[Rfam]
RNA sequence: GCGUCCACACCUUUUGAUUGUUGCUCAGAAAGCCCUUUGUUUAUCGAGUUGGCUUUCAAGUGACAAUCAAGUUGUGAAGGAUAG
Numbered sequence: 001g002c003g004u005c006c007a008c009a010c011c012u013u014u015u016g017a018u019u020g021u022u023g024c025u026c027a028g029a030a031a032g033c034c035c036u037u038u039g040u041u042u043a044u045c046g047a048g049u050u051g052g053c054u055u056u057c058a059a060g061u062g063a064c065a066a067u068c069a070a071g072u073u074g075u076g077a078a079g080g081a082u083a084g
Stems, first nucleotide, its partner, number of pairs: 003082004013071006020064006028057007

Shown here is an 84-nucleotide sequence from Capitella teleta, a member of the family "mir-315 microRNA precursor family". On this family, see Aravin et al., Dev Cell 2003: "The small RNA profile during Drosophila melanogaster development". Pairs were carried over by alignment from the consensus structure, which was predicted with RNAalifold. NCBI's taxonomy places the organism under Eukaryota, Eumetazoa, Bilateria, Annelida, Capitella.